This 188-nucleotide RNA sequence from Denticeps clupeoides belongs to the Rfam family "Small nucleolar RNA SNORA23". For this family Rfam cites "RNomics: an experimental approach that identifies 201 candidates for novel, small, non-messenger RNAs in mouse" (Huttenhofer et al., EMBO J, 2001). The family's RNA type in Rfam is H/ACA-box small nucleolar RNA.
RNA sequence: UGGGUAUUGGUGUGCACAGCACUUAUCUGUGUUUUUUGGUGCAGCUGCUCAUCUGUGUCCUACAGAUUGUCCAGCUGCACCCACACCCCCCCCUCAUGGUCUCACAGACAACUGGAGAUCAUAGUACUGGCCCAGUGAUGUCUCCUUGACAAUCCACCACUGGCCAGCCUCCAUACUCUCCUACAAAA
Numbered sequence: 001u002g003g004g005u006a007u008u009g010g011u012g013u014g015c016a017c018a019g020c021a022c023u024u025a026u027c028u029g030u031g032u033u034u035u036u037u038g039g040u041g042c043a044g045c046u047g048c049u050c051a052u053c054u055g056u057g058u059c060c061u062a063c064a065g066a067u068u069g070u071c072c073a074g075c076u077g078c079a080c081c082c083a084c085a086c087c088c089c090c091c092c093c094u095c096a097u098g099g100u101c102u103c104a105c106a107g108a109c110a111a112c113u114g115g116a117g118a119u120c121a122u123a124g125u126a127c128u129g130g131c132c133c134a135g136u137g138a139u140g141u142c143u144c145c146u147u148g149a150c151a152a153u154c155c156a157c158c159a160c161u162g163g164c165c166a167g168c169c170u171c172c173a174u175a176c177u178c179u180c181c182u183a184c185a186a187a188a
Stems, first nucleotide, its partner, number of pairs: 015098002031086002037083003040079006047072001050069002054064003114181005127167006134161004139152001140150003
Dot-bracket structure: ..............((..............((....(((((((((.(..((..(((.....)))...))..).)))))).))).))..........))...............(((((........((((((.((((.((((.....))).).....)))))))))).........))))).......

Taxonomically the source falls in Denticeps (Eukaryota, Actinopteri, Teleostei, Otomorpha).
From the family's description: The members of this family belong to the H/ACA class of snoRNAs which are thought to guide the sites of modification of uridines to pseudouridines. This family includes human snoRNA ACA23 (SNORA23) and mouse snoMBI-1. ACA23 is predicted to guide the pseudouridylation of residue U3737 and U4331 of 28S rRNA.